Shown here is a 60-nucleotide sequence from Medicago truncatula, a member of the family "MIR2629 microRNA precursor family". Gene Ontology terms of the family: miRNA-mediated post-transcriptional gene silencing and RISC complex. The match comes from Rfam's covariance-model search (60 bits). The organism belongs to Medicago, within Eukaryota.

[Rfam]
Nucleotides: 060
Stems, first nucleotide, its partner, number of pairs: 006059002009056015
Number, partner (000 for none) and nucleotide at each position: 001000a002000g003000u004000u005000u006059u007058c008000c009056u010055c011054g012053g013052u014051a015050g016049u017048u018047a019046a020045c021044u022043g023042c024000a025000a026000c027000u028000g029000g030000u031000u032000u033000c034000a035000u036000a037000a038000u039000u040000c041000g042023g043022c044021a045020g046019u047018u048017a049016a050015c051014u052013g053012c054011c055010g056009a057000a058007g059006a060000a